[Rfam]
Record summary: A member of the RNA family "Plant signal recognition particle RNA" from Gossypium mustelinum, 305 nucleotides long. The literature on the family includes a 2001 paper in J Mol Biol by Batey et al., "Structural and energetic analysis of RNA recognition by a universally conserved protein from the signal recognition particle". The family has 63 seed sequences and 4,988 matches in Rfam 15.1. By type it is a non-coding RNA gene.

RNA sequence: GCUGAGUGGGGUAGCGCCUGCUUGUAGCCCGAGUGGGGGCAUAAAAGUGAUGGGACUCUGGGUCAACUAACUGAGUCGGGUCCAUUGAGGCUUCUCUCUGGCUCGCCCGUUCCAAGCAAGGAGCUGAGACACGGGUCUUGUACGAAGGUUCGAGUUUUGUGUCUCCUAUAGUGGAAGGCAACGCGUGAGGCUGGUUUCACAGAGCAGCGAUAACUUCCCUCUCUCUGCAGUGGAAGGAUGACGGGCCGGUGCCACUUGAAUCCACAAUGGCUCUGUGGGUUUUCCCUAAUCGGACCACCGCUUUU
Numbered sequence: 001g002c003u004g005a006g007u008g009g010g011g012u013a014g015c016g017c018c019u020g021c022u023u024g025u026a027g028c029c030c031g032a033g034u035g036g037g038g039g040c041a042u043a044a045a046a047g048u049g050a051u052g053g054g055a056c057u058c059u060g061g062g063u064c065a066a067c068u069a070a071c072u073g074a075g076u077c078g079g080g081u082c083c084a085u086u087g088a089g090g091c092u093u094c095u096c097u098c099u100g101g102c103u104c105g106c107c108c109g110u111u112c113c114a115a116g117c118a119a120g121g122a123g124c125u126g127a128g129a130c131a132c133g134g135g136u137c138u139u140g141u142a143c144g145a146a147g148g149u150u151c152g153a154g155u156u157u158u159g160u161g162u163c164u165c166c167u168a169u170a171g172u173g174g175a176a177g178g179c180a181a182c183g184c185g186u187g188a189g190g191c192u193g194g195u196u197u198c199a200c201a202g203a204g205c206a207g208c209g210a211u212a213a214c215u216u217c218c219c220u221c222u223c224u225c226u227g228c229a230g231u232g233g234a235a236g237g238a239u240g241a242c243g244g245g246c247c248g249g250u251g252c253c254a255c256u257u258g259a260a261u262c263c264a265c266a267a268u269g270g271c272u273c274u275g276u277g278g279g280u281u282u283u284c285c286c287u288a289a290u291c292g293g294a295c296c297a298c299c300g301c302u303u304u305u
Stems, first nucleotide, its partner, number of pairs: 001040003004023007028037003043305007051297003056292001059288002061285002065281002068278001070276002073273005078263004083258002087255001089253002092251001098249008107237002110235005116228003120224004126165010137154004142149002166171001173218005184209003191202003